Source information:
A member of the RNA family "Plastid-psbA-4 3UTR RNA", 55 nucleotides long. The family is grouped with related families in Rfam's "Plastid-psbA 3UTR RNA clan".

RNA sequence: AAAAAAAGGAGCAAUAACAAAACUCUUGUUCUAUCAAGAGGUUGUUAUUGCUCCC
Numbered sequence: 001a002a003a004a005a006a007a008g009g010a011g012c013a014a015u016a017a018c019a020a021a022a023c024u025c026u027u028g029u030u031c032u033a034u035c036a037a038g039a040g041g042u043u044g045u046u047a048u049u050g051c052u053c054c055c
Base pairs, nucleotide, nucleotide: 008054009053010052011051012050013049014048015047016046021042023040024039025038026037027036028035